[Rfam]
Shown here is a 158-nucleotide RNA sequence from Gammaproteobacteria bacterium ESL0073, a member of the family "EFASI RNA". The base pairs follow the family's consensus structure, which is taken from published work. The family's RNA type in Rfam is small RNA.
RNA sequence: GUUGACCGAUACCGACGGCUGGUCACCGCCAGUGGGAUUUCCUGUGGCUUAUCUAUUGAUUUUUAUUAGAUAACGUUAAUAACAGGCGGUUGUACAGAGUACAUCACCGAACCCCAACACCUCAACUCCGUUUCGCUCUGGUGCAUAGGUAUCGUCAA
Dot-bracket structure: .((((.(((((((.....(((((....)))))((((....(((((....................................)))))(((((((((...)))))..))))...))))...............................)))))))))))